[Rfam]
RNA sequence: CACCCAUCCAGAGCGGCUGAGAGAUCUGGCUCGUUGACGCCGCAGCAAAUUGACCGAGUGGUCAUAGUGCUAACGCCAGAAUCGAUGGAAA
Numbered sequence: 001c002a003c004c005c006a007u008c009c010a011g012a013g014c015g016g017c018u019g020a021g022a023g024a025u026c027u028g029g030c031u032c033g034u035u036g037a038c039g040c041c042g043c044a045g046c047a048a049a050u051u052g053a054c055c056g057a058g059u060g061g062u063c064a065u066a067g068u069g070c071u072a073a074c075g076c077c078a079g080a081a082u083c084g085a086u087g088g089a090a091a
Base pairs, nucleotide, nucleotide: 004088005087006086007085008084013043014042015041016040017039021032022031023030026079027078028077029076044071045070046069047068050067051066052063053062054061055060075083
Rfam assigns this 91-nucleotide RNA from Neomicrococcus aestuarii to the family "SAM riboswitch aptamer (S box leader)".